Shown here is a 169-nucleotide sequence from Equus caballus, a member of the family "Interferon gamma 5' UTR regulatory element". A search with the family's covariance model found it, with a score of 116 bits. For this family Rfam cites "Human interferon-gamma mRNA autoregulates its translation through a pseudoknot that activates the interferon-inducible protein kinase PKR" (Ben-Asouli et al., Cell, 2002). The family has 5 seed sequences and 135 matches in Rfam 15.1. The family's RNA type in Rfam is cis-regulatory element. From the family's description: This family represents a pseudoknot containing stem-loop structure found in the 5' UTR of interferon (IFN) gamma mRNA. This structure is thought to be involved in translational regulation and the pseudoknot has been found to activate PKR which is known to be a translational inhibitor. Mutations in the pseudoknot structure have been found to reduce PKR activation and increase the translation of IFN-gamma. The organism belongs to Equus, within Eukaryota.
[Rfam]
RNA sequence: CACUCUUCUGAUCGCCGGUAGGGCAGCUAUUAGAAAAGAAAGAUCAGCUGAGGCCUUGGGACCUGAUCAGCUUAGUACAGAAGUGACUGCUUUCAACUACUUAGGCCUAACUCUCUCCGAAACAAUGAAUUAUACAAGUUUUAUCUUGGCUUUUCAGCUGUGUGCGAUU
Numbered sequence: 001c002a003c004u005c006u007u008c009u010g011a012u013c014g015c016c017g018g019u020a021g022g023g024c025a026g027c028u029a030u031u032a033g034a035a036a037a038g039a040a041a042g043a044u045c046a047g048c049u050g051a052g053g054c055c056u057u058g059g060g061a062c063c064u065g066a067u068c069a070g071c072u073u074a075g076u077a078c079a080g081a082a083g084u085g086a087c088u089g090c091u092u093u094c095a096a097c098u099a100c101u102u103a104g105g106c107c108u109a110a111c112u113c114u115c116u117c118c119g120a121a122a123c124a125a126u127g128a129a130u131u132a133u134a135c136a137a138g139u140u141u142u143a144u145c146u147u148g149g150c151u152u153u154u155c156a157g158c159u160g161u162g163u164g165c166g167a168u169u
Stems, first nucleotide, its partner, number of pairs: 008070007016119003020114003026106003032101002035098001041093003045089003052084001056081002059078001121169002126164002131143002134140001148159004